[Rfam]
RNA sequence: UAAUUCUUUCGGGGCAGGGUGAAAUUCCCAACCGGCAGUAAGUGAAGCCUGCGACCCGAGGUCAUACGAUAUGACCUUGGCUGAUCUAGUGAGAAUCUAGAGCCGACAGUAUAGUCUGGAUGGGAGAAAGAAUGA
Numbered sequence: 001u002a003a004u005u006c007u008u009u010c011g012g013g014g015c016a017g018g019g020u021g022a023a024a025u026u027c028c029c030a031a032c033c034g035g036c037a038g039u040a041a042g043u044g045a046a047g048c049c050u051g052c053g054a055c056c057c058g059a060g061g062u063c064a065u066a067c068g069a070u071a072u073g074a075c076c077u078u079g080g081c082u083g084a085u086c087u088a089g090u091g092a093g094a095a096u097c098u099a100g101a102g103c104c105g106a107c108a109g110u111a112u113a114g115u116c117u118g119g120a121u122g123g124g125a126g127a128a129a130g131a132a133u134g135a
Stems, first nucleotide, its partner, number of pairs: 003133008017029003031115002033105002035052004047103002056080004085101005107118003
This 135-nucleotide sequence from Staphylococcus sp. HMSC071G07 belongs to the Rfam family "FMN riboswitch aptamer (RFN element)". A search with the family's covariance model found it, with a score of 120 bits. Taxonomically the source falls in Staphylococcus (Bacteria, Bacillati, Bacillota, Staphylococcaceae).